[Rfam]
RNA: Small nucleolar RNA snoR27
Organism: Rhynchospora breviuscula
RNA sequence: UCUGGAUCUGUGAUGCGAUUAUUCUGCGUUAUCUUCCAGCAAAUUUCCAUUCUAAUUAUGGAUUUGUUGAAAAAUACUAAAUUACUGAGAUCCAAA
Numbered sequence: 001u002c003u004g005g006a007u008c009u010g011u012g013a014u015g016c017g018a019u020u021a022u023u024c025u026g027c028g029u030u031a032u033c034u035u036c037c038a039g040c041a042a043a044u045u046u047c048c049a050u051u052c053u054a055a056u057u058a059u060g061g062a063u064u065u066g067u068u069g070a071a072a073a074a075u076a077c078u079a080a081a082u083u084a085c086u087g088a089g090a091u092c093c094a095a096a
Base pairs, nucleotide, nucleotide: 001096003094004093005092006091007090008089009088